Rfam assigns this 45-nucleotide sequence from Desmophyllum pertusum to the family "Histone 3' UTR stem-loop". A search with the family's covariance model found it, with a score of 37 bits. Rfam describes the family as follows. The mRNAs of metazoan histone genes lack a poly-A tail. 3' end processing occurs at a site between a highly conserved stem-loop (modelled by this family) and a purine rich region around 20 nts downstream (the histone downstream element, or HDE). The stem-loop is bound by a 31 kDa stem-loop binding protein (SLBP - also termed the histone hairpin binding protein, or HBP). Together with U7 snRNA binding of the HDE, SLBP binding nucleate s the formation of the processing complex.
RNA sequence: AAAACGGCUCCUUUAGGAGCCACCAACUUUGAAAAAGUCAAUGUC
Numbered sequence: 001a002a003a004a005c006g007g008c009u010c011c012u013u014u015a016g017g018a019g020c021c022a023c024c025a026a027c028u029u030u031g032a033a034a035a036a037g038u039c040a041a042u043g044u045c
Base pairs, nucleotide, nucleotide: 006021007020008019009018010017011016